[Rfam]
RNA sequence: GGAAUAUUGACAGGAUCUGUCCCUAGUACGAGAGGACCGGGAUGGACGUAUCUCUGGUGGACCUGUUGUGGCGCCAGCCGCAUAGCAGGGUAGCUAUAUACGGACGGGAUAACCGCUGAAGGCAUCUAAGCGGGAAACCCACCUGAAAACGAGUGUUCCCCGAGAGCCGUGGAAGACGACCACGUUGAUAGGCCGGGUGUGGAAGCGCAGCAAUGUGUGAAGCUUACCGGUACUAAUAGCUCGAUCG
Numbered sequence: 001g002g003a004a005u006a007u008u009g010a011c012a013g014g015a016u017c018u019g020u021c022c023c024u025a026g027u028a029c030g031a032g033a034g035g036a037c038c039g040g041g042a043u044g045g046a047c048g049u050a051u052c053u054c055u056g057g058u059g060g061a062c063c064u065g066u067u068g069u070g071g072c073g074c075c076a077g078c079c080g081c082a083u084a085g086c087a088g089g090g091u092a093g094c095u096a097u098a099u100a101c102g103g104a105c106g107g108g109a110u111a112a113c114c115g116c117u118g119a120a121g122g123c124a125u126c127u128a129a130g131c132g133g134g135a136a137a138c139c140c141a142c143c144u145g146a147a148a149a150c151g152a153g154u155g156u157u158c159c160c161c162g163a164g165a166g167c168c169g170u171g172g173a174a175g176a177c178g179a180c181c182a183c184g185u186u187g188a189u190a191g192g193c194c195g196g197g198u199g200u201g202g203a204a205g206c207g208c209a210g211c212a213a214u215g216u217g218u219g220a221a222g223c224u225u226a227c228c229g230g231u232a233c234u235a236a237u238a239g240c241u242c243g244a245u246c247g
Stems, first nucleotide, its partner, number of pairs: 001159008011145004017045007047102005055096003062089005067082006106140003113133005164242004168184005189235003192231005197225001199223001205218005

A member of the RNA family "Bacterial large subunit ribosomal RNA" from Kumtagia ephedrae, 247 nucleotides of a longer RNA. A search with the family's covariance model found it, with a score of 2704 bits. NCBI's taxonomy places the organism under Bacteria, Pseudomonadota, Hyphomicrobiales, Phyllobacteriaceae, Kumtagia.